[Rfam]
RNA sequence: GAGAUAUGAUGAUAUAUCAAUUUGGUCCGUGUUUCUGAUUUAACCGUGACCGAUAACCCUUUACCAAUCUCUGAUCUC
Numbered sequence: 001g002a003g004a005u006a007u008g009a010u011g012a013u014a015u016a017u018c019a020a021u022u023u024g025g026u027c028c029g030u031g032u033u034u035c036u037g038a039u040u041u042a043a044c045c046g047u048g049a050c051c052g053a054u055a056a057c058c059c060u061u062u063a064c065c066a067a068u069c070u071c072u073g074a075u076c077u078c
Stems, first nucleotide, its partner, number of pairs: 001078004
The family of this 78-nucleotide RNA from Acer yangbiense is "Small nucleolar RNA SNORD18". Its Rfam clan is "SNORD18 clan". The family's consensus secondary structure was predicted with PFOLD. The family has 16 seed sequences and 2,622 matches in Rfam 15.1. On this family, see Prislei et al., Nucleic Acids Res 1993: "Two different snoRNAs are encoded in introns of amphibian and human L1 ribosomal protein genes".